[Rfam]
RNA sequence: CCCUGUAUCCGAAAGUGAUCUUGGCUGCCUGUGCUCUGGUCAUUGGUAGUGCAGGGAAAGGAUGCUGAAAGACAGGUUCCUGGAUUUGGGGCAUCUGUUCUGACCUCCACAGGAGUGUAGGAGCCUUCCUACA
Dot-bracket structure: ((((((((.....(((((((..(((.......)).).)))))))....)))))))).......(..(((.(.(..........((((((((.............).)).))..)))......)).))).)...
Numbered sequence: 001c002c003c004u005g006u007a008u009c010c011g012a013a014a015g016u017g018a019u020c021u022u023g024g025c026u027g028c029c030u031g032u033g034c035u036c037u038g039g040u041c042a043u044u045g046g047u048a049g050u051g052c053a054g055g056g057a058a059a060g061g062a063u064g065c066u067g068a069a070a071g072a073c074a075g076g077u078u079c080c081u082g083g084a085u086u087u088g089g090g091g092c093a094u095c096u097g098u099u100c101u102g103a104c105c106u107c108c109a110c111a112g113g114a115g116u117g118u119a120g121g122a123g124c125c126u127u128c129c130u131a132c133a
Stems, first nucleotide, its partner, number of pairs: 001056008014044007023036001024034002064130001067128003071124001073123001084116003087111002089108002091105001
This 133-nucleotide RNA sequence from Cricetulus griseus belongs to the Rfam family "Small nucleolar RNA SNORA71". Its family is annotated with RNA processing and nucleolus in the Gene Ontology. The match comes from Rfam's covariance-model search (65 bits). Lineage of the source: Eukaryota > Bilateria > Theria > Muroidea > Cricetulus. The base pairs follow the family's consensus structure, which was predicted with PFOLD. The members of this family belong to the H/ACA class of snoRNAs which bind a number of proteins (including dyskerin, Gar1p and Nop10p) to form snoRNP complexes.